Vault RNA: a 99-nucleotide RNA sequence from Gadus morhua. A search with the family's covariance model found it, with a score of 36 bits. Lineage of the source: Eukaryota > Euteleostomi > Neoteleostei > Ctenosquamata > Gadus. Rfam classes the family as a non-coding RNA gene.
RNA sequence: GUUCUGGUGUAGCUCAGUGGUUACUUCCUACAAUUCUAAACCGAUUUACCUGUACCAUCCCUUACAGGGAUUUAACCAUGUGCACUGUCCAGUGAUUAU
Numbered sequence: 001g002u003u004c005u006g007g008u009g010u011a012g013c014u015c016a017g018u019g020g021u022u023a024c025u026u027c028c029u030a031c032a033a034u035u036c037u038a039a040a041c042c043g044a045u046u047u048a049c050c051u052g053u054a055c056c057a058u059c060c061c062u063u064a065c066a067g068g069g070a071u072u073u074a075a076c077c078a079u080g081u082g083c084a085c086u087g088u089c090c091a092g093u094g095a096u097u098a099u
Base pairs, nucleotide, nucleotide: 002094004092005091006090007089012083013082015080017079018078019077020076026070027069028068029067
Dot-bracket structure: .(.((((....((.(.((((.....((((.....................................)))).....))))).)).....)))).).....
This family of RNAs are found as part of the enigmatic vault ribonucleoprotein complex.